Actinobacteria sRNA Ms_IGR-7: a 123-nucleotide sequence from Pseudofrankia asymbiotica. The literature on the family includes a 2013 paper in RNA by Li et al., "Identification of small RNAs in Mycobacterium smegmatis using heterologous Hfq". The organism belongs to Pseudofrankia, within Bacteria. It scores 51 bits against the family's covariance model.
[Rfam]
RNA sequence: CGAAGGUGCUCCUUGGUACGGGAUGGGUCAGGCCCUCAGCAAGCCCAAUCCUCCCAGCUCAGGAGCACUUUCCUAUUUCCAACACCCCAACAGACGAUCACCCACACGAAAGCCCUGGGUUAG
Numbered sequence: 001c002g003a004a005g006g007u008g009c010u011c012c013u014u015g016g017u018a019c020g021g022g023a024u025g026g027g028u029c030a031g032g033c034c035c036u037c038a039g040c041a042a043g044c045c046c047a048a049u050c051c052u053c054c055c056a057g058c059u060c061a062g063g064a065g066c067a068c069u070u071u072c073c074u075a076u077u078u079c080c081a082a083c084a085c086c087c088c089a090a091c092a093g094a095c096g097a098u099c100a101c102c103c104a105c106a107c108g109a110a111a112g113c114c115c116u117g118g119g120u121u122a123g
Stems, first nucleotide, its partner, number of pairs: 002072012016060001019057001021055002025051004032044002098122001100120005